Annotation
A member of the RNA family "MIR394 microRNA precursor family" from Paspalum vaginatum, 118 nucleotides long. NCBI's taxonomy places the organism under Eukaryota, Tracheophyta, Euphyllophyta, Magnoliopsida, Paspalum. Rfam links the family to the GO terms RISC complex and miRNA-mediated post-transcriptional gene silencing. It scores 83 bits against the family's covariance model. The literature on the family includes a 2006 paper in Genome Res by Lu et al., "MicroRNAs and other small RNAs enriched in the Arabidopsis RNA-dependent RNA polymerase-2 mutant".
[Rfam]
RNA sequence: UUUACUUGGAGUUCCUUGGCAUUCUGUCCACCUCCUUGCCGAUCUUGCAGAAAGUCUCUCAAAUCUGUUGGUUUUUUUUUUUUUGGAGGUGGGCAUACUGCCAAUGGAGCUGUGUAGG
Numbered sequence: 001u002u003u004a005c006u007u008g009g010a011g012u013u014c015c016u017u018g019g020c021a022u023u024c025u026g027u028c029c030a031c032c033u034c035c036u037u038g039c040c041g042a043u044c045u046u047g048c049a050g051a052a053a054g055u056c057u058c059u060c061a062a063a064u065c066u067g068u069u070g071g072u073u074u075u076u077u078u079u080u081u082u083u084u085g086g087a088g089g090u091g092g093g094c095a096u097a098c099u100g101c102c103a104a105u106g107g108a109g110c111u112g113u114g115u116a117g118g
Base pairs, nucleotide, nucleotide: 013108016104017103018102019101020100021099025095026094027093028092029091030090031089032088033087034086035085